[Rfam]
Nucleotides: 221
Base pairs, nucleotide, nucleotide: 015045016044017043018042019041022037023036024035025034026033027032048075049074050073052071053070054069055066056065057064086126087125089124090123096121097120098119099118100117101116102115103114148187149186150185152183155177156176157175158174160173161172162171163170201214202213203212204211205210
Number, partner (000 for none) and nucleotide at each position: 001000u002000u003000u004000c005000a006000a007000a008000u009000g010000g011000c012000a013000a014000c015045g016044g017043c018042u019041a020000a021000c022037g023036u024035u025034g026033a027032g028000u029000a030000c031000c032027c033026u034025c035024g036023a037022u038000c039000u040000c041019u042018g043017g044016c045015c046000c047000a048075c049074u050073g051000u052071c053070c054069c055066g056065a057064u058000a059000c060000g061000a062000u063000u064057a065056u066055u067000c068000g069054g070053g071052g072000u073050c074049a075048g076000c077000u078000g079000u080000u081000u082000g083000u084000a085000a086126g087125u088000c089124c090123c091000g092000u093000a094000u095000u096121c097120a098119a099118c100117u101116u102115g103114u104000g105000c106000c107000g108000c109000a110000c111000a112000g113000g114103g115102c116101a117100g118099g119098u120097u121096g122000a123090g124089g125087g126086c127000c128000a129000g130000a131000c132000a133000c134000u135000g136000c137000g138000c139000u140000a141000u142000c143000c144000c145000g146000c147000a148187g149186g150185g151000c152183g153000a154000c155177c156176g157175a158174u159000a160173c161172a162171c163170g164000g165000g166000u167000g168000u169000u170163c171162g172161u173160g174158a175157u176156c177155g178000u179000a180000u181000a182000u183152c184000c185150c186149c187148c188000c189000a190000a191000g192000g193000a194000g195000c196000g197000u198000c199000u200000g201214c202213g203212g204211g205210g206000u207000u208000g209000a210205u211204c212203c213202c214201g215000g216000g217000c218000a219000g220000u221000g
ilvB-OMG RNA: a 221-nucleotide sequence.
The base pairs follow the family's consensus structure, which is taken from published work.
It is one of the family's seed sequences.
Rfam classes the family as a cis-regulatory element.